Description: This 130-nucleotide RNA sequence from Prolemur simus belongs to the Rfam family "Small nucleolar RNA SNORA75".

[Rfam]
RNA sequence: GUCUUCUCAAUGGGUCCCUUUCUGUUUCUUGGUGGCAGUUUAUAGAUUUGCAUGAGAAGAAUUCACAGAACUAGCAUUAUUUUACCUUCUGUCUUUAUGGAGGUAUAUUUCGCUGUUUUGUGAGACAUUC
Numbered sequence: 001g002u003c004u005u006c007u008c009a010a011u012g013g014g015u016c017c018c019u020u021u022c023u024g025u026u027u028c029u030u031g032g033u034g035g036c037a038g039u040u041u042a043u044a045g046a047u048u049u050g051c052a053u054g055a056g057a058a059g060a061a062u063u064c065a066c067a068g069a070a071c072u073a074g075c076a077u078u079a080u081u082u083u084a085c086c087u088u089c090u091g092u093c094u095u096u097a098u099g100g101a102g103g104u105a106u107a108u109u110u111c112g113c114u115g116u117u118u119u120g121u122g123a124g125a126c127a128u129u130c
Base pairs, nucleotide, nucleotide: 003059004058005057006056007055008054014051015050017045022038023037024036025035026034063123064122065121066120067119068118086103087102088101089100090099091098
It is annotated as an H/ACA-box small nucleolar RNA. From the family's description: U23 belongs to the H/ACA class of snoRNAs. snoRNAs bind a number of proteins (including dyskerin, Gar1p and Nop10p in the case of the H/ACA class) to form snoRNP complexes. This class are thought to guide the sites of modification of uridines to pseudouridines by forming direct base pairing interactions with substrate RNAs. The literature on the family includes a 1997 paper in Genes Dev by Ganot et al., "The family of box ACA small nucleolar RNAs is defined by an evolutionarily conserved secondary structure and ubiquitous sequence elements essential for RNA accumulation". The match comes from Rfam's covariance-model search (82 bits). The family's consensus secondary structure was predicted with PFOLD. NCBI's taxonomy places the organism under Eukaryota, Metazoa, Chordata, Lemuridae, Prolemur.